[Rfam]
RNA sequence: CCUUCUAAUGUGAUGAAAAAUUUCGGAUGUAAAUAUAUUUUGUCUCCGAGAGCGCAAAACCCAUGUGGAGAUUUUCCGUUGCCUUCCUUCUGAUUAAAAC
Dot-bracket structure: ..((...................((((...............................................))))...................)).
Numbered sequence: 001c002c003u004u005c006u007a008a009u010g011u012g013a014u015g016a017a018a019a020a021u022u023u024c025g026g027a028u029g030u031a032a033a034u035a036u037a038u039u040u041u042g043u044c045u046c047c048g049a050g051a052g053c054g055c056a057a058a059a060c061c062c063a064u065g066u067g068g069a070g071a072u073u074u075u076c077c078g079u080u081g082c083c084u085u086c087c088u089u090c091u092g093a094u095u096a097a098a099a100c
Stems, first nucleotide, its partner, number of pairs: 003099002024078004
Source information:
Shown here is a 100-nucleotide RNA sequence from Amorphotheca resinae, a member of the family "Small nucleolar RNA Z13/snr52". The family has 42 seed sequences and 1,203 matches in Rfam 15.1. It is annotated as a C/D-box small nucleolar RNA. The base pairs follow the family's consensus structure, which was predicted with PFOLD. The match comes from Rfam's covariance-model search (92 bits). NCBI's taxonomy places the organism under Eukaryota, Pezizomycotina, leotiomyceta, Leotiomycetes, Amorphotheca resinae.